Source information: This 116-nucleotide RNA from Actinacidiphila oryziradicis belongs to the Rfam family "SAM (S-adenosyl methionine) riboswitch aptamer".
RNA sequence: GGUCACGAAGCCGAUCGCGCCCCUGGGCGAUCAACGCCUGGCAACCUCGCAACCCGCGCAAGGUGCCUUCCAGGGAAUACCGGGCCCCCACAGCCCAGUGCGGGUAAGCGCGGAUU
Numbered sequence: 001g002g003u004c005a006c007g008a009a010g011c012c013g014a015u016c017g018c019g020c021c022c023c024u025g026g027g028c029g030a031u032c033a034a035c036g037c038c039u040g041g042c043a044a045c046c047u048c049g050c051a052a053c054c055c056g057c058g059c060a061a062g063g064u065g066c067c068u069u070c071c072a073g074g075g076a077a078u079a080c081c082g083g084g085c086c087c088c089c090a091c092a093g094c095c096c097a098g099u100g101c102g103g104g105u106a107a108g109c110g111c112g113g114a115u116u
Stems, first nucleotide, its partner, number of pairs: 001081003009039001013032004019028002040067003045063003049059002084105004089100003
The base pairs follow the family's consensus structure, which is taken from published work.